[Rfam]
RNA sequence: CGUUACGAGGUUACCUCUGUCAUUAUCUUCAACUUAUGUAGAUAAUAGAAUGUAGCUGUUAA
Numbered sequence: 001c002g003u004u005a006c007g008a009g010g011u012u013a014c015c016u017c018u019g020u021c022a023u024u025a026u027c028u029u030c031a032a033c034u035u036a037u038g039u040a041g042a043u044a045a046u047a048g049a050a051u052g053u054a055g056c057u058g059u060u061a062a
Stems, first nucleotide, its partner, number of pairs: 009057006020047001023044001027041002030038001
Dot-bracket structure: ........((((((.....(..(...((.(.......).))..)..)....)))))).....
Transposase-1 RNA: a 62-nucleotide sequence. Rfam's curators put it in the seed alignment.